Notes: The record is a 101-nucleotide RNA sequence from Mesobacillus zeae, which matches "Purine riboswitch aptamer" in Rfam.
RNA sequence: UUAAAAUUUGAUAGUAGCACUUGUAUAAUCGCAGGGAUAAGGCCUGCAAGUUUCUACCGGUCGCCGUAAACGAACCGACUAUGAGUGGGCAAUGGGAAGCU
Numbered sequence: 001u002u003a004a005a006a007u008u009u010g011a012u013a014g015u016a017g018c019a020c021u022u023g024u025a026u027a028a029u030c031g032c033a034g035g036g037a038u039a040a041g042g043c044c045u046g047c048a049a050g051u052u053u054c055u056a057c058c059g060g061u062c063g064c065c066g067u068a069a070a071c072g073a074a075c076c077g078a079c080u081a082u083g084a085g086u087g088g089g090c091a092a093u094g095g096g097a098a099g100c101u
Base pairs, nucleotide, nucleotide: 018087019086020085021084022083023082024081025080029049031047032046033045034044035043058077059076060075061073062072063071

The match comes from Rfam's covariance-model search (74 bits).